[Rfam]
RNA: Eukaryotic large subunit ribosomal RNA, nucleotides 1431 to 1877
RNA sequence: GGUAGUAGCAAAUAUUCCAAUUGAAAUCUUUGAGGACUGAAGUGGAGAAGGUUUCCUCGAGAACAUUAGUUGGUCGAGGGUUAGUCGAUCCUAAGAGAUAGGGUAGUUCCGUUUUACCAAAUGGUCCUUUGGACCAUCCUAUCGAAAGGGAAGCUGGUUAAUAUUCCAGCACCAAGACAUGGAUUCUAUGCGGCAACGCAGAUGAACAUAGGGACAUUGGCAUGGAUCCUGGGAAGAGUUCUCUUUUCUUUUUGACAGCGUUUUCUUAAGCCAUGAAAUCGGUCUAAACCGGGGCAAUGUUUGCUUAAGAGCUGUUAGAGUAACGCAAUUUUUGUGGUAGCCACAGCAUUCAUGACGAUCCUUGAAGACCUACGGGAAAGAAUGAAUUUCAUGCUUGGGCGUACCAUAACCGCAGCAGGUCCCCAAGGUCUAGAAGCCUCUACUUGA
Numbered sequence: 001g002g003u004a005g006u007a008g009c010a011a012a013u014a015u016u017c018c019a020a021u022u023g024a025a026a027u028c029u030u031u032g033a034g035g036a037c038u039g040a041a042g043u044g045g046a047g048a049a050g051g052u053u054u055c056c057u058c059g060a061g062a063a064c065a066u067u068a069g070u071u072g073g074u075c076g077a078g079g080g081u082u083a084g085u086c087g088a089u090c091c092u093a094a095g096a097g098a099u100a101g102g103g104u105a106g107u108u109c110c111g112u113u114u115u116a117c118c119a120a121a122u123g124g125u126c127c128u129u130u131g132g133a134c135c136a137u138c139c140u141a142u143c144g145a146a147a148g149g150g151a152a153g154c155u156g157g158u159u160a161a162u163a164u165u166c167c168a169g170c171a172c173c174a175a176g177a178c179a180u181g182g183a184u185u186c187u188a189u190g191c192g193g194c195a196a197c198g199c200a201g202a203u204g205a206a207c208a209u210a211g212g213g214a215c216a217u218u219g220g221c222a223u224g225g226a227u228c229c230u231g232g233g234a235a236g237a238g239u240u241c242u243c244u245u246u247u248c249u250u251u252u253u254g255a256c257a258g259c260g261u262u263u264u265c266u267u268a269a270g271c272c273a274u275g276a277a278a279u280c281g282g283u284c285u286a287a288a289c290c291g292g293g294g295c296a297a298u299g300u301u302u303g304c305u306u307a308a309g310a311g312c313u314g315u316u317a318g319a320g321u322a323a324c325g326c327a328a329u330u331u332u333u334g335u336g337g338u339a340g341c342c343a344c345a346g347c348a349u350u351c352a353u354g355a356c357g358a359u360c361c362u363u364g365a366a367g368a369c370c371u372a373c374g375g376g377a378a379a380g381a382a383u384g385a386a387u388u389u390c391a392u393g394c395u396u397g398g399g400c401g402u403a404c405c406a407u408a409a410c411c412g413c414a415g416c417a418g419g420u421c422c423c424c425a426a427g428g429u430c431u432a433g434a435a436g437c438c439u440c441u442a443c444u445u446g447a
Stems, first nucleotide, its partner, number of pairs: 015034003019030002035445002038442001044424002047421001050405002055079006064072002086401002090149002095143002097113003101110003122136003153170005173397004178393005183387002189200004207374001209372004216359004221354007230343002232252006256314004270304002272299003279292004321339002324336004410419002426439004